RNA sequence: AAGUGUGUAUAGCUUUUUUUGAAUUUGUCCUGUAAGUUUUACAAUUUUUACUGGAAGACUCCU
Numbered sequence: 001a002a003g004u005g006u007g008u009a010u011a012g013c014u015u016u017u018u019u020u021g022a023a024u025u026u027g028u029c030c031u032g033u034a035a036g037u038u039u040u041a042c043a044a045u046u047u048u049u050a051c052u053g054g055a056a057g058a059c060u061c062c063u
Stems, first nucleotide, its partner, number of pairs: 035060006042053002045050001

The family of this 63-nucleotide RNA from Phyllostomus discolor is "U7 small nuclear RNA". It scores 40 bits against the family's covariance model. Pairs were carried over by alignment from the consensus structure, which was predicted with PFOLD. The organism belongs to Phyllostomus, within Eukaryota.